Rfam assigns this 28-nucleotide sequence from Thermoplasma volcanium to the family "CRISPR RNA direct repeat element". NCBI's taxonomy places the organism under Archaea, Methanobacteriati, Thermoplasmatales, Thermoplasma, Thermoplasma volcanium.

RNA sequence: CUUCCAUACUAACUAGUACAUCUUAAAC
Numbered sequence: 001c002u003u004c005c006a007u008a009c010u011a012a013c014u015a016g017u018a019c020a021u022c023u024u025a026a027a028c
Stems, first nucleotide, its partner, number of pairs: 007018004
The sequence is in the family's curated seed alignment.